[Rfam]
RNA: Group II catalytic intron D1-D4-4
Organism: Paenibacillus albidus
RNA sequence: UAGUAGGUGAAAGUCCAACCAAAGGAGGGGCCAAGCCACCUUUGUAGCUAGGAUGCUUGCACAUGGCGAAAUCUGUGUGUAAAAAACGCAUCGACAGAAGUACUGGACUAUGCCGCUAUACGUGGAUUCGGGUACCGUAU
Numbered sequence: 001u002a003g004u005a006g007g008u009g010a011a012a013g014u015c016c017a018a019c020c021a022a023a024g025g026a027g028g029g030g031c032c033a034a035g036c037c038a039c040c041u042u043u044g045u046a047g048c049u050a051g052g053a054u055g056c057u058u059g060c061a062c063a064u065g066g067c068g069a070a071a072u073c074u075g076u077g078u079g080u081a082a083a084a085a086a087c088g089c090a091u092c093g094a095c096a097g098a099a100g101u102a103c104u105g106g107a108c109u110a111u112g113c114c115g116c117u118a119u120a121c122g123u124g125g126a127u128u129c130g131g132g133u134a135c136c137g138u139a140u
Stems, first nucleotide, its partner, number of pairs: 020044005052092005057082006066073001099109003112133003